[Rfam]
RNA: mir-H3 microRNA precursor family
RNA sequence: CGGCCGGCGCGCUCUCGACCGCGGUUCCCGAGUCGUACGCAGGGACCAUUUGGGAGUCUGCGGUUGGGAGCGCGCCGGGGC
Numbered sequence: 001c002g003g004c005c006g007g008c009g010c011g012c013u014c015u016c017g018a019c020c021g022c023g024g025u026u027c028c029c030g031a032g033u034c035g036u037a038c039g040c041a042g043g044g045a046c047c048a049u050u051u052g053g054g055a056g057u058c059u060g061c062g063g064u065u066g067g068g069a070g071c072g073c074g075c076c077g078g079g080g081c
Stems, first nucleotide, its partner, number of pairs: 004078020025056009